[Rfam]
RNA: int-alpA RNA
RNA sequence: CCAACACCUAUCCCAACGGGGAGAAAAGCCGGUCGUCCACCGGCCUGGUGCUGAUAUGCCUCAAAUG
Numbered sequence: 001c002c003a004a005c006a007c008c009u010a011u012c013c014c015a016a017c018g019g020g021g022a023g024a025a026a027a028g029c030c031g032g033u034c035g036u037c038c039a040c041c042g043g044c045c046u047g048g049u050g051c052u053g054a055u056a057u058g059c060c061u062c063a064a065a066u067g
Base pairs, nucleotide, nucleotide: 002053003052005050006049007048008047011022012021013020014019028044029043030042031041032040034067035066036065